[Rfam]
Nucleotides: 102
Stems, first nucleotide, its partner, number of pairs: 019087007029049003033045003058078007
Number, partner (000 for none) and nucleotide at each position: 001000a002000a003000u004000a005000g006000u007000a008000c009000a010000a011000u012000u013000u014000a015000a016000u017000c018000g019087u020086u021085g022084c023083g024082u025081a026000u027000a028000a029049u030048u031047u032000c033045g034044g035043g036000a037000a038000u039000a040000u041000g042000g043035c044034c045033c046000a047031a048030g049029a050000g051000u052000u053000u054000c055000u056000a057000c058078c059077g060076g061075a062074c063073c064072a065000c066000c067000g068000u069000a070000a071000a072064u073063g074062g075061u076060c077059u078058g079000a080000c081025u082024a083023c084022g085021c086020a087019g088000g089000a090000u091000g092000a093000a094000c095000u096000a097000u098000g099000a100000u101000g102000a
Purine riboswitch aptamer: a 102-nucleotide RNA from Lentibacillus halodurans. It scores 87 bits against the family's covariance model.